[Rfam]
RNA sequence: AGUGUUAUGAUGAUUGGCUUAAUAUGUUCAACUGCUCUGAAGUGUGAGUGACAGCUGCCUCUCUGAACAACC
Dot-bracket structure: .((((.............................................................))).).
Numbered sequence: 001a002g003u004g005u006u007a008u009g010a011u012g013a014u015u016g017g018c019u020u021a022a023u024a025u026g027u028u029c030a031a032c033u034g035c036u037c038u039g040a041a042g043u044g045u046g047a048g049u050g051a052c053a054g055c056u057g058c059c060u061c062u063c064u065g066a067a068c069a070a071c072c
Stems, first nucleotide, its partner, number of pairs: 002071001003069003
Rfam assigns this 72-nucleotide RNA sequence from Scophthalmus maximus to the family "Small nucleolar RNA Z40". Its family is annotated with RNA processing and nucleolus in the Gene Ontology. The base pairs follow the family's consensus structure, which was predicted with PFOLD. Taxonomically the source falls in Scophthalmus (Eukaryota, Deuterostomia, Osteoglossocephalai, Pleuronectoidei). The family's RNA type in Rfam is C/D-box small nucleolar RNA.